[Rfam]
Source information:
The record is a 72-nucleotide sequence, which matches "DUF3800-IX RNA" in Rfam. By type it is a small RNA. The base pairs follow the family's consensus structure, which is taken from published work.

RNA sequence: GACCCUGACCCUCGAAUUGUCACCGGACGGUGCGCGUUCCAAACUAACGUUUGGAUAGAGACAGGGUCGUUU
Numbered sequence: 001g002a003c004c005c006u007g008a009c010c011c012u013c014g015a016a017u018u019g020u021c022a023c024c025g026g027a028c029g030g031u032g033c034g035c036g037u038u039c040c041a042a043a044c045u046a047a048c049g050u051u052u053g054g055a056u057a058g059a060g061a062c063a064g065g066g067u068c069g070u071u072u
Stems, first nucleotide, its partner, number of pairs: 001068007011060003018036003021032004038055005